[Rfam]
RNA sequence: UUUUUUUUUAUUUGUAAAAAAUAAUUUAUUUAGACAUCUGACAUCGCUGAUGAAUGCCAACGGCUCUGAUGGCAGAGA
Dot-bracket structure: (((((....................................................................)))))
RNA: Small nucleolar RNA SNORD74